[Rfam]
RNA sequence: UGUUAACAUAAUAUUUUGCCGUAGACAGCAGGUCCGGAUUCAGUAUUACUGAUGACGGUUAAAGGUAACACGCCUACCGAGGAUUUAAGGAUUUGAUUAAUUAUUCCCUCUCUGUCUUAGGCAGAGAGGGUUUUGUUUGUAGGGA
Numbered sequence: 001u002g003u004u005a006a007c008a009u010a011a012u013a014u015u016u017u018g019c020c021g022u023a024g025a026c027a028g029c030a031g032g033u034c035c036g037g038a039u040u041c042a043g044u045a046u047u048a049c050u051g052a053u054g055a056c057g058g059u060u061a062a063a064g065g066u067a068a069c070a071c072g073c074c075u076a077c078c079g080a081g082g083a084u085u086u087a088a089g090g091a092u093u094u095g096a097u098u099a100a101u102u103a104u105u106c107c108c109u110c111u112c113u114g115u116c117u118u119a120g121g122c123a124g125a126g127a128g129g130g131u132u133u134u135g136u137u138u139g140u141a142g143g144g145a
Stems, first nucleotide, its partner, number of pairs: 028077001030075004034058003106130010
Annotation:
This 145-nucleotide RNA sequence from Lachnospira eligens belongs to the Rfam family "Ribosomal protein L10 leader". Taxonomically the source falls in Lachnospira eligens (Bacteria, Bacillota, Clostridia, Lachnospira). The match comes from Rfam's covariance-model search (59 bits). By type it is a cis-regulatory leader. The family's consensus secondary structure was predicted with CMfinder. The literature on the family includes a 1994 paper in Prog Nucleic Acid Res Mol Biol by Zengel and Lindahl, "Diverse mechanisms for regulating ribosomal protein synthesis in Escherichia coli".